[Rfam]
RNA sequence: GUAAAUGCAGUGAUGAGGAGGAGUACAUAUUUUUUGAAUCAGAAGAGAGAAGAUGGCUGGUGAAAAUCUUUGUUUCGGAAAUAUGGAAGUAGCCUUUGAGCAGUGGGCUGAACAGGGCAGAUGGCAGCAGGAGUAUAAAUGUAUUUUUGUCAGGCAAAAUGCACAGAUUAAUCUCUAAACAUUUCCUAAGUAGGCUUCAACGGAAGUUCCCGCCGUUAUCAGGGAAACGAUAUAAGCAGCAGGGAAGCAUUGGUGAAAAUGCUGUUAUGCUGCCGUAUUGGAUGAGUGCAAAGCGUAAGCUUUGAAAUUAGGUGGUACCGCGGAGAUAUUCGCCCUAAGU
Numbered sequence: 001g002u003a004a005a006u007g008c009a010g011u012g013a014u015g016a017g018g019a020g021g022a023g024u025a026c027a028u029a030u031u032u033u034u035u036g037a038a039u040c041a042g043a044a045g046a047g048a049g050a051a052g053a054u055g056g057c058u059g060g061u062g063a064a065a066a067u068c069u070u071u072g073u074u075u076c077g078g079a080a081a082u083a084u085g086g087a088a089g090u091a092g093c094c095u096u097u098g099a100g101c102a103g104u105g106g107g108c109u110g111a112a113c114a115g116g117g118c119a120g121a122u123g124g125c126a127g128c129a130g131g132a133g134u135a136u137a138a139a140u141g142u143a144u145u146u147u148u149g150u151c152a153g154g155c156a157a158a159a160u161g162c163a164c165a166g167a168u169u170a171a172u173c174u175c176u177a178a179a180c181a182u183u184u185c186c187u188a189a190g191u192a193g194g195c196u197u198c199a200a201c202g203g204a205a206g207u208u209c210c211c212g213c214c215g216u217u218a219u220c221a222g223g224g225a226a227a228c229g230a231u232a233u234a235a236g237c238a239g240c241a242g243g244g245a246a247g248c249a250u251u252g253g254u255g256a257a258a259a260u261g262c263u264g265u266u267a268u269g270c271u272g273c274c275g276u277a278u279u280g281g282a283u284g285a286g287u288g289c290a291a292a293g294c295g296u297a298a299g300c301u302u303u304g305a306a307a308u309u310a311g312g313u314g315g316u317a318c319c320g321c322g323g324a325g326a327u328a329u330u331c332g333c334c335c336u337a338a339g340u
Stems, first nucleotide, its partner, number of pairs: 007101002015096004026085006038074001040072001049071006104199002106196004201215003289304006309337004320333005
Rfam assigns this 340-nucleotide RNA from bacterium D16-59 to the family "T-box leader". Pairs were carried over by alignment from the consensus structure, which is taken from published work. From the family's description: Uncharged tRNA acts as the effector for transcription antitermination of genes in the T-box leader family. The match comes from Rfam's covariance-model search (117 bits). Rfam links the family to the GO term tRNA binding.